A member of the RNA family "U4 spliceosomal RNA" from Otolemur garnettii, 139 nucleotides long. The literature on the family includes a 2017 paper in Cell by Bertram et al., "Cryo-EM Structure of a Pre-catalytic Human Spliceosome Primed for Activation". Rfam classes the family as a spliceosomal small nuclear RNA. The match comes from Rfam's covariance-model search (104 bits). From the family's description: U4 small nuclear RNA (U4 snRNA) is a component of the major U2-dependent spliceosome. The family's consensus secondary structure is taken from published work.
RNA sequence: GGCUUUGCGCAGUGGCAGUAUCGUAGCCAAUGAGGUUUAUCUGAGGCACGAUUAUUACUAAUUGAAAACUUCCCAAUAGCCUGCUGUGACAACUUGCAAUAUAGUCGGCACUGGCAAUUUUUGACGGUCUCUAUGGAGA
Numbered sequence: 001g002g003c004u005u006u007g008c009g010c011a012g013u014g015g016c017a018g019u020a021u022c023g024u025a026g027c028c029a030a031u032g033a034g035g036u037u038u039a040u041c042u043g044a045g046g047c048a049c050g051a052u053u054a055u056u057a058c059u060a061a062u063u064g065a066a067a068a069c070u071u072c073c074c075a076a077u078a079g080c081c082u083g084c085u086g087u088g089a090c091a092a093c094u095u096g097c098a099a100u101a102u103a104g105u106c107g108g109c110a111c112u113g114g115c116a117a118u119u120u121u122u123g124a125c126g127g128u129c130u131c132u133a134u135g136g137a138g139a
Base pairs, nucleotide, nucleotide: 020052021051022050023049024048026047027046028045034042035041083115084114085113086111087110088109090107092105093104094103128139129138130137131136